[Rfam]
RNA sequence: CAGUGUUCUCAGGGCGGGGUGAAACUCCCCACCGGCGGUAUCCGGAGUGAUCCGGGAGCCCGCGAGCGCUUCCGCGAAAGUGGAAGGUCAGCAGACCCGGUGAGAGGCCGGGGCCGACGGUUAAAGUCCGGAUGGAAGAGAACAUGU
Numbered sequence: 001c002a003g004u005g006u007u008c009u010c011a012g013g014g015c016g017g018g019g020u021g022a023a024a025c026u027c028c029c030c031a032c033c034g035g036c037g038g039u040a041u042c043c044g045g046a047g048u049g050a051u052c053c054g055g056g057a058g059c060c061c062g063c064g065a066g067c068g069c070u071u072c073c074g075c076g077a078a079a080g081u082g083g084a085a086g087g088u089c090a091g092c093a094g095a096c097c098c099g100g101u102g103a104g105a106g107g108c109c110g111g112g113g114c115c116g117a118c119g120g121u122u123a124a125a126g127u128c129c130g131g132a133u134g135g136a137a138g139a140g141a142a143c144a145u146g147u
Base pairs, nucleotide, nucleotide: 003145004144005143006142007141008140009139010138017029018028019027031127032126033116034115035063036062037061038060058114059113066092067091096112097111098110099109100108118130119129120128
A member of the RNA family "FMN riboswitch aptamer (RFN element)" from Sinorhizobium sp. BG8, 147 nucleotides long. Taxonomically the source falls in Sinorhizobium (Bacteria, Pseudomonadati, Hyphomicrobiales, Rhizobiaceae). Rfam's curators write: The RFN element is a highly conserved domain that is found frequently in the 5'-untranslated regions of prokaryotic mRNAs that encode for flavin mononucleotide (FMN) biosynthesis and transport proteins. Pairs were carried over by alignment from the consensus structure, which is taken from published work. The match comes from Rfam's covariance-model search (116 bits).